[Rfam]
RNA sequence: AGCGAUCUUACCUCAUUCAGUGGUGUUGCGAUGCUGGAAGCGCUCAUCACAACCUGCAUGAAUGAGGUAAGGUCAUG
Numbered sequence: 001a002g003c004g005a006u007c008u009u010a011c012c013u014c015a016u017u018c019a020g021u022g023g024u025g026u027u028g029c030g031a032u033g034c035u036g037g038a039a040g041c042g043c044u045c046a047u048c049a050c051a052a053c054c055u056g057c058a059u060g061a062a063u064g065a066g067g068u069a070a071g072g073u074c075a076u077g
Stems, first nucleotide, its partner, number of pairs: 008069001012066008023054001025053001027051002030048004
Shown here is a 77-nucleotide RNA from Capitella teleta, a member of the family "mir-67 microRNA precursor family". Taxonomically the source falls in Capitella (Eukaryota, Opisthokonta, Lophotrochozoa, Sedentaria). The base pairs follow the family's consensus structure, which was predicted with RNAalifold.